Description:
A member of the RNA family "Small nucleolar RNA Z13/snr52" from Trichoderma reesei, 96 nucleotides long. The source organism's lineage runs through Eukaryota, Fungi, Pezizomycotina, Hypocreales and Trichoderma reesei. Rfam's curators put it in the seed alignment. Rfam links the family to the GO terms RNA processing and nucleolus. The family's RNA type in Rfam is C/D-box small nucleolar RNA.
[Rfam]
RNA sequence: CCUUCCAUGAUGAAAUAUUGCGGAUGUAAAUCUAUUGUCACGUCUGAAUGCGCAAACCCUGUAGAGAUUUCCGUUGCCUUCCUUCUGAUCUGGAAA
Numbered sequence: 001c002c003u004u005c006c007a008u009g010a011u012g013a014a015a016u017a018u019u020g021c022g023g024a025u026g027u028a029a030a031u032c033u034a035u036u037g038u039c040a041c042g043u044c045u046g047a048a049u050g051c052g053c054a055a056a057c058c059c060u061g062u063a064g065a066g067a068u069u070u071c072c073g074u075u076g077c078c079u080u081c082c083u084u085c086u087g088a089u090c091u092g093g094a095a096a
Stems, first nucleotide, its partner, number of pairs: 003095003021073004